Ribosomal protein L20 leader: a 124-nucleotide sequence from Fructilactobacillus lindneri. The match comes from Rfam's covariance-model search (61 bits). The base pairs follow the family's consensus structure, which was predicted with CMfinder. About the family: This family is a putative r-protein leader autoregulatory structure found in B. subtilis and other low-GC Gram-positive bacteria. It is located in the 5' untranslated regions of mRNAs encoding initiation factor 3 followed by ribosomal proteins L35 and L20 (infC-rpmI-rplT). A Rho-independent transcription terminator structure that is probably involved in regulation is included at the 3' end. By type it is a cis-regulatory leader. Lineage of the source: Bacteria > Bacillati > Bacillota > Bacilli > Fructilactobacillus lindneri. The literature on the family includes a 1994 paper in Prog Nucleic Acid Res Mol Biol by Zengel and Lindahl, "Diverse mechanisms for regulating ribosomal protein synthesis in Escherichia coli".
RNA sequence: AGAUAAAAGCAGAGGCUUCCCGCUUCUCGCCUUAGUGAUACUGAUUGCUGGGCUUUUACGGAUUAAUGACCUAUUUAAUAGGUGUAGCGGGUAUUCAGCUGAAUGCCCGCUAUUUUUCUGCUUU
Numbered sequence: 001a002g003a004u005a006a007a008a009g010c011a012g013a014g015g016c017u018u019c020c021c022g023c024u025u026c027u028c029g030c031c032u033u034a035g036u037g038a039u040a041c042u043g044a045u046u047g048c049u050g051g052g053c054u055u056u057u058a059c060g061g062a063u064u065a066a067u068g069a070c071c072u073a074u075u076u077a078a079u080a081g082g083u084g085u086a087g088c089g090g091g092u093a094u095u096c097a098g099c100u101g102a103a104u105g106c107c108c109g110c111u112a113u114u115u116u117u118c119u120g121c122u123u124u
Stems, first nucleotide, its partner, number of pairs: 011027006029053003035048005086111010